[Rfam]
RNA sequence: GCCGGUGUAAAUGAUGAACUCACUUUUUUCCCCAUCAGAUCGACCGUGUUGAUGUCUUUGAAUACUUGCCAGUUAAUUCUGACAACACCUGC
Numbered sequence: 001g002c003c004g005g006u007g008u009a010a011a012u013g014a015u016g017a018a019c020u021c022a023c024u025u026u027u028u029u030c031c032c033c034a035u036c037a038g039a040u041c042g043a044c045c046g047u048g049u050u051g052a053u054g055u056c057u058u059u060g061a062a063u064a065c066u067u068g069c070c071a072g073u074u075a076a077u078u079c080u081g082a083c084a085a086c087a088c089c090u091g092c
Stems, first nucleotide, its partner, number of pairs: 001092002004089005
Dot-bracket structure: ((.(((((............................................................................))))).))
Small nucleolar SNORD12/SNORD106: a 92-nucleotide RNA sequence from Odocoileus virginianus. The match comes from Rfam's covariance-model search (87 bits). The family's consensus secondary structure was predicted with RNAalifold. Its Rfam clan is "SNORD12 clan".